[Rfam]
RNA sequence: CUCCAUGGUGACCGUGGCAUUAGAUUGUUACUGUAGCAACAGCACUUCUGGUAACAGUCUACAGCCAUGGUCGCUAGGGGGCA
Numbered sequence: 001c002u003c004c005a006u007g008g009u010g011a012c013c014g015u016g017g018c019a020u021u022a023g024a025u026u027g028u029u030a031c032u033g034u035a036g037c038a039a040c041a042g043c044a045c046u047u048c049u050g051g052u053a054a055c056a057g058u059c060u061a062c063a064g065c066c067a068u069g070g071u072c073g074c075u076a077g078g079g080g081g082c083a
Stems, first nucleotide, its partner, number of pairs: 012070002015067004023059010
This 83-nucleotide sequence from Cyprinus carpio belongs to the Rfam family "mir-132 microRNA precursor family". Pairs were carried over by alignment from the consensus structure, which was predicted with RNAalifold. Taxonomically the source falls in Cyprinus (Eukaryota, Metazoa, Craniata, Actinopterygii). The sequence is in the family's curated seed alignment.